[Rfam]
RNA sequence: GCUACAUGAUGCUUUCAGAGCCAUGAGCGUUUGUUGCUAAGAUGACCUCUAUCACUCUUGACUGUUGGUU
Dot-bracket structure: ((((......................(((.....)))............................)))).
Numbered sequence: 001g002c003u004a005c006a007u008g009a010u011g012c013u014u015u016c017a018g019a020g021c022c023a024u025g026a027g028c029g030u031u032u033g034u035u036g037c038u039a040a041g042a043u044g045a046c047c048u049c050u051a052u053c054a055c056u057c058u059u060g061a062c063u064g065u066u067g068g069u070u
Stems, first nucleotide, its partner, number of pairs: 001069004027037003
This 70-nucleotide RNA sequence from Trichechus manatus belongs to the Rfam family "Small nucleolar RNA SNORD83". The source organism's lineage runs through Eukaryota, Opisthokonta, Deuterostomia, Sarcopterygii and Trichechus manatus. It scores 39 bits against the family's covariance model. The literature on the family includes a 2000 paper in Nucleic Acids Res by Jady and Kiss, "Characterisation of the U83 and U84 small nucleolar RNAs: two novel 2'-O-ribose methylation guide RNAs that lack complementarities to ribosomal RNAs". The base pairs follow the family's consensus structure, which was predicted with PFOLD.